[Rfam]
Source information: Shown here is an 83-nucleotide sequence from Muraenolepis orangiensis, a member of the family "Small nucleolar RNA SNORD79". Rfam classes the family as a C/D-box small nucleolar RNA. Lineage of the source: Eukaryota > Opisthokonta > Metazoa > Zeiogadaria > Muraenolepis.
RNA sequence: AACUGCAUGUGAUGACUGUUGUUUGAAAAACAUUGGGAAUCUCUCUGAAUAACGAUGAUAGAUGGCUUUCUACUGAUGCAAUG
Numbered sequence: 001a002a003c004u005g006c007a008u009g010u011g012a013u014g015a016c017u018g019u020u021g022u023u024u025g026a027a028a029a030a031c032a033u034u035g036g037g038a039a040u041c042u043c044u045c046u047g048a049a050u051a052a053c054g055a056u057g058a059u060a061g062a063u064g065g066c067u068u069u070c071u072a073c074u075g076a077u078g079c080a081a082u083g
Stems, first nucleotide, its partner, number of pairs: 002082001004080004

Rfam describes the family as follows. snoRNA U79 or Z22 is found in intron 7 of the gas5 gene in humans and is also present in mice. The family is grouped with related families in Rfam's "SNORD74 clan".